[Rfam]
RNA sequence: GGGAAAGAUAUGGAAGACUAUUUCUAAGGGAAAUGACCGAAGGGACAAGUUUAAUCUAACACCAAGUAGAUUAAAUGAAAUUCUCAGGUAAAAGAACUGUAUCUGGACG
Number, nucleotide and partner (000 for none) at each position: 001g000002g000003g000004a000005a000006a104007g103008a102009u101010a100011u099012g098013g097014a000015a000016g000017a000018c000019u000020a034021u033022u032023u031024c000025u000026a000027a000028g000029g000030g000031a023032a022033a021034u020035g000036a089037c088038c087039g085040a084041a000042g000043g083044g082045a081046c000047a000048a000049g076050u075051u074052u073053a072054a071055u070056c069057u068058a067059a000060c000061a000062c000063c000064a000065a000066g000067u058068a057069g056070a055071u054072u053073a052074a051075a050076u049077g000078a000079a000080a000081u045082u044083c043084u040085c039086a000087g038088g037089u036090a000091a000092a000093a000094g000095a000096a000097c013098u012099g011100u010101a009102u008103c007104u006105g000106g000107a000108c000109g000
RNA: Glycine riboswitch aptamer
Organism: Romboutsia weinsteinii